[Rfam]
RNA sequence: AGGUGUGGUAGAGGCGCGGUUUUCAUCAGUAGCUCCUUAACGGUGCGGAAACACACGGAGUAAAAGGGAACGCCGCCGAAGGGUCGCACAAUUUCCGUUGUACGAUACCUGGCAAGCGCGAGAAUAUCGUACUUGUUGCCGCUUUUGCGGAGAGCUAUCGUGGCG
Numbered sequence: 001a002g003g004u005g006u007g008g009u010a011g012a013g014g015c016g017c018g019g020u021u022u023u024c025a026u027c028a029g030u031a032g033c034u035c036c037u038u039a040a041c042g043g044u045g046c047g048g049a050a051a052c053a054c055a056c057g058g059a060g061u062a063a064a065a066g067g068g069a070a071c072g073c074c075g076c077c078g079a080a081g082g083g084u085c086g087c088a089c090a091a092u093u094u095c096c097g098u099u100g101u102a103c104g105a106u107a108c109c110u111g112g113c114a115a116g117c118g119c120g121a122g123a124a125u126a127u128c129g130u131a132c133u134u135g136u137u138g139c140c141g142c143u144u145u146u147g148c149g150g151a152g153a154g155c156u157a158u159c160g161u162g163g164c165g
Stems, first nucleotide, its partner, number of pairs: 006160006016076005022070003032061005038055001080110003083106004088101004111137006118130004139150004
The record is a 165-nucleotide sequence from Cryptobacterium curtum, which matches "Lysine riboswitch aptamer" in Rfam. The family's consensus secondary structure is taken from published work. Lineage of the source: Bacteria > Coriobacteriia > Eggerthellaceae > Cryptobacterium > Cryptobacterium curtum.